[Rfam]
RNA: mir-1994 microRNA precursor family
Organism: Candidula unifasciata
RNA sequence: UCUCAGGGACGAAGUUCUGUCUACGUGUGUACUACGUCAUGAGACAGUGCGUCCUCCCUCAGAC
Numbered sequence: 001u002c003u004c005a006g007g008g009a010c011g012a013a014g015u016u017c018u019g020u021c022u023a024c025g026u027g028u029g030u031a032c033u034a035c036g037u038c039a040u041g042a043g044a045c046a047g048u049g050c051g052u053c054c055u056c057c058c059u060c061a062g063a064c
Stems, first nucleotide, its partner, number of pairs: 002062002006057003011052001014050002017047006025040003